Small nucleolar RNA SNORA57: a 149-nucleotide sequence from Neotoma lepida. About the family: U99 belongs to the H/ACA class of snoRNAs which are thought to guide the sites of modification of uridines to pseudouridines, the target for this family is unknown. Taxonomically the source falls in Neotoma (Eukaryota, Mammalia, Euarchontoglires, Cricetidae).
[Rfam]
RNA sequence: CCUCCUUUUCUUGGCGGGGACCGGGCGUGCCGUCCUGCUCCCCGUUAUGUACGGAGGCAGAAGGAAAGGGCUCCGGCCCUCUCAGGGUCAUGUCUUCGGUGCCUACAGCCUCCCGUUAGCCGGUUCUAUCCUCAGACGCCAGGACACCG
Numbered sequence: 001c002c003u004c005c006u007u008u009u010c011u012u013g014g015c016g017g018g019g020a021c022c023g024g025g026c027g028u029g030c031c032g033u034c035c036u037g038c039u040c041c042c043c044g045u046u047a048u049g050u051a052c053g054g055a056g057g058c059a060g061a062a063g064g065a066a067a068g069g070g071c072u073c074c075g076g077c078c079c080u081c082u083c084a085g086g087g088u089c090a091u092g093u094c095u096u097c098g099g100u101g102c103c104u105a106c107a108g109c110c111u112c113c114c115g116u117u118a119g120c121c122g123g124u125u126c127u128a129u130c131c132u133c134a135g136a137c138g139c140c141a142g143g144a145c146a147c148c149g
Stems, first nucleotide, its partner, number of pairs: 001057005015044006022037004085139001087137002102123002106119001108117001